[Rfam]
RNA sequence: GUGUGUUAAUGAUAGCCUGCUUCCAAACUCCAAGCGGAGAGAGCAGGUUUGAUGCACGUGCACAC
Numbered sequence: 001g002u003g004u005g006u007u008a009a010u011g012a013u014a015g016c017c018u019g020c021u022u023c024c025a026a027a028c029u030c031c032a033a034g035c036g037g038a039g040a041g042a043g044c045a046g047g048u049u050u051g052a053u054g055c056a057c058g059u060g061c062a063c064a065c
Stems, first nucleotide, its partner, number of pairs: 001065005014049009028039003
Overview: Rfam assigns this 65-nucleotide sequence from Albula goreensis to the family "Selenocysteine insertion sequence 1". The family's consensus secondary structure is taken from published work. From the family's description: The incorporation of selenocysteine into a protein sequence is directed by an in-frame UGA codon (usually a stop codon) within the coding region of the mRNA. Selenoprotein mRNAs contain a conserved secondary structure in the 3' UTR that is required for the distinction of UGA stop from UGA selenocysteine. The selenocysteine insertion sequence (SECIS) is around 60 nt in length and adopts a hairpin structure which is sufficiently well-defined and conserved to act as a computational screen for selenoprotein genes. Rfam links the family to the GO term selenocysteine incorporation. It scores 38 bits against the family's covariance model.